[Rfam]
RNA sequence: GCGAUGAGCCCGUUUGCAUAAGUCGCCAGGCAUUCCUUUCGGGGAGCACGACCGUGAAUCGUGGCCUGGGCGCCGCAAACUUUCGAAGACCCGCUGCCGUUUCGGCAGCGGGUC
Dot-bracket structure: .............((((......((((((((..((.....))....((.((.......)).))))))).)))..)))).........(((((((((((.....)))))))))))
Numbered sequence: 001g002c003g004a005u006g007a008g009c010c011c012g013u014u015u016g017c018a019u020a021a022g023u024c025g026c027c028a029g030g031c032a033u034u035c036c037u038u039u040c041g042g043g044g045a046g047c048a049c050g051a052c053c054g055u056g057a058a059u060c061g062u063g064g065c066c067u068g069g070g071c072g073c074c075g076c077a078a079a080c081u082u083u084c085g086a087a088g089a090c091c092c093g094c095u096g097c098c099g100u101u102u103c104g105g106c107a108g109c110g111g112g113u114c
Stems, first nucleotide, its partner, number of pairs: 014078004024072003027068005034042002047063002050060002088114011
Rfam assigns this 114-nucleotide sequence from Planomicrobium sp. YIM 101495 to the family "BsrF". For this family Rfam cites "Novel small RNA-encoding genes in the intergenic regions of Bacillus subtilis" (Saito et al., Gene, 2008). It is annotated as a small RNA.